[Rfam]
This 67-nucleotide sequence from Clarias magur belongs to the Rfam family "Small nucleolar RNA SNORD24". The base pairs follow the family's consensus structure, which was predicted with PFOLD. The organism belongs to Clarias, within Eukaryota. It is annotated as a C/D-box small nucleolar RNA.
Nucleotides: 067
Stems, first nucleotide, its partner, number of pairs: 001067004
Number, partner (000 for none) and nucleotide at each position: 001067u002066g003065c004064a005000a006000a007000u008000g009000a010000u011000g012000u013000g014000a015000a016000g017000a018000a019000a020000a021000u022000c023000u024000g025000a026000u027000u028000g029000u030000u031000c032000a033000c034000u035000g036000u037000u038000g039000a040000c041000a042000c043000u044000u045000u046000u047000c048000c049000c050000a051000c052000c053000a054000a055000g056000a057000u058000c059000a060000c061000u062000g063000a064004u065003g066002c067001a